The family of this 76-nucleotide RNA sequence from Crypturellus undulatus is "Small nucleolar RNA SNORD19".
Lineage of the source: Eukaryota > Metazoa > Chordata > Tetrapoda > Crypturellus.
The match comes from Rfam's covariance-model search (35 bits).
For this family Rfam cites "RNomics: an experimental approach that identifies 201 candidates for novel, small, non-messenger RNAs in mouse" (Huttenhofer et al., EMBO J, 2001).
Clan: SNORD19 clan.
The pairing is the family consensus, mapped onto this sequence.
Gene Ontology terms of the family: RNA processing and nucleolus.
The family's RNA type in Rfam is C/D-box small nucleolar RNA.
RNA sequence: GAGAAAUGAAGACCUUCUUCCUGUUCCUUAUUAUUGCAGUGAAGACCUCAGAUCCAACUCUGAUCUCACUCUUGUU
Numbered sequence: 001g002a003g004a005a006a007u008g009a010a011g012a013c014c015u016u017c018u019u020c021c022u023g024u025u026c027c028u029u030a031u032u033a034u035u036g037c038a039g040u041g042a043a044g045a046c047c048u049c050a051g052a053u054c055c056a057a058c059u060c061u062g063a064u065c066u067c068a069c070u071c072u073u074g075u076u
Base pairs, nucleotide, nucleotide: 001067002066003065004064